The record is a 163-nucleotide RNA sequence from Serilophus lunatus, which matches "Small nucleolar RNA SNORD97" in Rfam.

RNA sequence: UUGCCCAAUGAUUAUAGCAAGACGCGUUAUUAUGAGGACUAAUGCUGGAACUCUUUUCUCCUCUUUCUCCUCCUCCUUUGUCCCUUCCUCUUUUACCUUCCCCCCCCUUCAUUUUCCAUAGGGUAUCCAGCGUCCUAUGAGCAAGACUGAGAUAUGAGGGCAA
Numbered sequence: 001u002u003g004c005c006c007a008a009u010g011a012u013u014a015u016a017g018c019a020a021g022a023c024g025c026g027u028u029a030u031u032a033u034g035a036g037g038a039c040u041a042a043u044g045c046u047g048g049a050a051c052u053c054u055u056u057u058c059u060c061c062u063c064u065u066u067c068u069c070c071u072c073c074u075c076c077u078u079u080g081u082c083c084c085u086u087c088c089u090c091u092u093u094u095a096c097c098u099u100c101c102c103c104c105c106c107c108u109u110c111a112u113u114u115u116c117c118a119u120a121g122g123g124u125a126u127c128c129a130g131c132g133u134c135c136u137a138u139g140a141g142c143a144a145g146a147c148u149g150a151g152a153u154a155u156g157a158g159g160g161c162a163a
Stems, first nucleotide, its partner, number of pairs: 001163006035054003040049001
By type it is a C/D-box small nucleolar RNA.
Gene Ontology terms of the family: nucleolus and RNA processing.